[Rfam]
RNA sequence: AUCACCUAGAGAUCUUGUUAUAAUGCAAAUUCUAAUUCUGUAACACUGGGAUGGGCUUGAGAGUCUGCAUUUCUAACAAGCUUCCAAGUGUUGCUAA
Numbered sequence: 001a002u003c004a005c006c007u008a009g010a011g012a013u014c015u016u017g018u019u020a021u022a023a024u025g026c027a028a029a030u031u032c033u034a035a036u037u038c039u040g041u042a043a044c045a046c047u048g049g050g051a052u053g054g055g056c057u058u059g060a061g062a063g064u065c066u067g068c069a070u071u072u073c074u075a076a077c078a079a080g081c082u083u084c085c086a087a088g089u090g091u092u093g094c095u096a097a
Stems, first nucleotide, its partner, number of pairs: 003090003009084003014080007022071002025068003029064001031062003
Overview:
The family of this 97-nucleotide sequence from Lipotes vexillifer is "mir-544 microRNA precursor family". Lineage of the source: Eukaryota > Chordata > Craniata > Sarcopterygii > Lipotes. A reference for the family is Chiang et al. (2010), "Mammalian microRNAs: experimental evaluation of novel and previously annotated genes", Genes Dev. The match comes from Rfam's covariance-model search (78 bits). The base pairs follow the family's consensus structure, which was predicted with RNAalifold.